Shown here is a 67-nucleotide RNA sequence from Pipistrellus kuhlii, a member of the family "mir-9256 microRNA precursor family". The base pairs follow the family's consensus structure, which was predicted with RNAalifold. Gene Ontology terms of the family: miRNA-mediated post-transcriptional gene silencing and RISC complex. It scores 82 bits against the family's covariance model.
RNA sequence: AUCUACACUGAGUGGCCAGAUUAUGAUGAUUUCUAAAUGCAUAAUAAUCUGGCCACUCUGUGUAUAU
Numbered sequence: 001a002u003c004u005a006c007a008c009u010g011a012g013u014g015g016c017c018a019g020a021u022u023a024u025g026a027u028g029a030u031u032u033c034u035a036a037a038u039g040c041a042u043a044a045u046a047a048u049c050u051g052g053c054c055a056c057u058c059u060g061u062g063u064a065u066a067u
Stems, first nucleotide, its partner, number of pairs: 004064005010058008019049006026042003